[Rfam]
RNA sequence: AAGCAACACUGUGGCAGAUGAUCAAAAUUGUCUGACACAAUGUGAGCUUGCUACAGCCAGAAAGUCGAACCUAUUCUGGUGUUUUCUCGUCCAUGAGCCAAGCUGUUAUGUAGAUUUAAACAGU
Numbered sequence: 001a002a003g004c005a006a007c008a009c010u011g012u013g014g015c016a017g018a019u020g021a022u023c024a025a026a027a028u029u030g031u032c033u034g035a036c037a038c039a040a041u042g043u044g045a046g047c048u049u050g051c052u053a054c055a056g057c058c059a060g061a062a063a064g065u066c067g068a069a070c071c072u073a074u075u076c077u078g079g080u081g082u083u084u085u086c087u088c089g090u091c092c093a094u095g096a097g098c099c100a101a102g103c104u105g106u107u108a109u110g111u112a113g114a115u116u117u118a119a120a121c122a123g124u
Stems, first nucleotide, its partner, number of pairs: 009044001010039004015034006062117005068111001072110003077105004086097003
Rfam assigns this 124-nucleotide sequence from Sciurus carolinensis to the family "Small nucleolar RNA SNORA28". By type it is an H/ACA-box small nucleolar RNA. The family is grouped with related families in Rfam's "SNORA28 clan". For this family Rfam cites "RNomics: an experimental approach that identifies 201 candidates for novel, small, non-messenger RNAs in mouse" (Huttenhofer et al., EMBO J, 2001). A search with the family's covariance model found it, with a score of 105 bits. ACA28 is a member of the H/ACA class of snoRNA that guide the sites of modification of uridines to pseudouridines.